[Rfam]
RNA sequence: CUGGUCUGAGGGAAGGCGAGGAUCGCCCUCGCCGCCGGUUCGGCCAGUGCAUUGGGCCCGGCCCCGACAAGCAGCCCGCGGAGGGGCUCUUCCGAGCCAGCCUUGGACCUUCGCGGUUGCCGCCUCCUCCUCCCGCCUCUGGAUUUGGAGGAAUUCCGCCUCGCAGCCCCCGCUCUGGACUGCCUCUGUCUCUCGCGUGUGAGGGCGCCAGUGCUUAGCGAGCGAGCCUGGGGCGCGCGCGCCGCGAAGGCAUCGCGGGGACCCAUUCGCCAUG
Numbered sequence: 001c002u003g004g005u006c007u008g009a010g011g012g013a014a015g016g017c018g019a020g021g022a023u024c025g026c027c028c029u030c031g032c033c034g035c036c037g038g039u040u041c042g043g044c045c046a047g048u049g050c051a052u053u054g055g056g057c058c059c060g061g062c063c064c065c066g067a068c069a070a071g072c073a074g075c076c077c078g079c080g081g082a083g084g085g086g087c088u089c090u091u092c093c094g095a096g097c098c099a100g101c102c103u104u105g106g107a108c109c110u111u112c113g114c115g116g117u118u119g120c121c122g123c124c125u126c127c128u129c130c131u132c133c134c135g136c137c138u139c140u141g142g143a144u145u146u147g148g149a150g151g152a153a154u155u156c157c158g159c160c161u162c163g164c165a166g167c168c169c170c171c172g173c174u175c176u177g178g179a180c181u182g183c184c185u186c187u188g189u190c191u192c193u194c195g196c197g198u199g200u201g202a203g204g205g206c207g208c209c210a211g212u213g214c215u216u217a218g219c220g221a222g223c224g225a226g227c228c229u230g231g232g233g234c235g236c237g238c239g240c241g242c243c244g245c246g247a248a249g250g251c252a253u254c255g256c257g258g259g260g261a262c263c264c265a266u267u268c269g270c271c272a273u274g
Base pairs, nucleotide, nucleotide: 002012016032017031018030019029020028021027034062035061036060086154088152090151130150131149132148133147180211181210182209184207186205187204191202192201219241220240222238223237224236
HIF-1 alpha IRES: a 274-nucleotide sequence from Loxodonta africana. This family represents the hypoxia-inducible factor 1-alpha internal ribosome entry site. HIF-1a is a subunit of the HIF-1 transcription factor, which induces transcription of several genes involved in the cellular response to hypoxia. The HIF-1a IRES allows translation to be maintained under hypoxic cell conditions that inhibit cap-dependent translation. The organism belongs to Loxodonta, within Eukaryota. By type it is an internal ribosome entry site.